[Rfam]
RNA sequence: AUGCUGCCGGUAUGCGUCGCUGACCUCCGUCAGCACCAUGCCCAGGCAGCCCCGGUCUUCAAGGCUGCAACGCGGUUCGCCGCGUGGAUCGAACCAGUCCGCCUCGCAUCACCCACCGCGGACGAGCGUUUUCACAACGCCGAUGC
Numbered sequence: 001a002u003g004c005u006g007c008c009g010g011u012a013u014g015c016g017u018c019g020c021u022g023a024c025c026u027c028c029g030u031c032a033g034c035a036c037c038a039u040g041c042c043c044a045g046g047c048a049g050c051c052c053c054g055g056u057c058u059u060c061a062a063g064g065c066u067g068c069a070a071c072g073c074g075g076u077u078c079g080c081c082g083c084g085u086g087g088a089u090c091g092a093a094c095c096a097g098u099c100c101g102c103c104u105c106g107c108a109u110c111a112c113c114c115a116c117c118g119c120g121g122a123c124g125a126g127c128g129u130u131u132u133c134a135c136a137a138c139g140c141c142g143a144u145g146c
Stems, first nucleotide, its partner, number of pairs: 011040004019034006046068006054090004070085006118146003126140005